The family of this 208-nucleotide sequence from Ureibacillus sinduriensis is "T-box leader".
The family's RNA type in Rfam is cis-regulatory leader.
The family's consensus secondary structure is taken from published work.
A search with the family's covariance model found it, with a score of 129 bits.
RNA sequence: GAAAAAACGAUGAGAAAGAAUAGUACACUUGCCUCCCGUGCAAAGAGAGUCUGUGGUUGGUGCAAACAGAAGACGGAGCAAUUGGAAUGGACUUUUGAGUGGCUUUAUGAAAUGAGUAGUAAAGCACGUCACUUCACGUUACGAAGUCUAAGUGGUCAUUUUUGACAAACUGGGUGGUACCGCGGAUUCAACAUCAUUCGUCCCUUUA
Numbered sequence: 001g002a003a004a005a006a007a008c009g010a011u012g013a014g015a016a017a018g019a020a021u022a023g024u025a026c027a028c029u030u031g032c033c034u035c036c037c038g039u040g041c042a043a044a045g046a047g048a049g050u051c052u053g054u055g056g057u058u059g060g061u062g063c064a065a066a067c068a069g070a071a072g073a074c075g076g077a078g079c080a081a082u083u084g085g086a087a088u089g090g091a092c093u094u095u096u097g098a099g100u101g102g103c104u105u106u107a108u109g110a111a112a113u114g115a116g117u118a119g120u121a122a123a124g125c126a127c128g129u130c131a132c133u134u135c136a137c138g139u140u141a142c143g144a145a146g147u148c149u150a151a152g153u154g155g156u157c158a159u160u161u162u163u164g165a166c167a168a169a170c171u172g173g174g175u176g177g178u179a180c181c182g183c184g185g186a187u188u189c190a191a192c193a194u195c196a197u198u199c200g201u202c203c204c205u206u207u208a
Base pairs, nucleotide, nucleotide: 007100008099015095016094017093018092026084027083029081030080031079038074039073050070051069052068053067054066102125103124104123105122106121107120108119127138128137129136155166156165157164158163172204173203174202182201183200184199185198186197